RNA sequence: AGCACUCUUUCAUUUUUAUGAAAGUGCUGGCAUAUGUAAGUCCGACGUGCCGCUCCCGGCACGGCCCCCCGAGAAAUUGGGCUUUGGGAUUAC
Dot-bracket structure: ((((((................)))))).......((((..((...(((((......)))))((((.............))))...)).))))
S15-Methanomicrobia ribosomal protein leader: a 93-nucleotide RNA sequence.
Its Rfam clan is "Ribosomal Protein S15 Leader clan".
It is one of the family's seed sequences.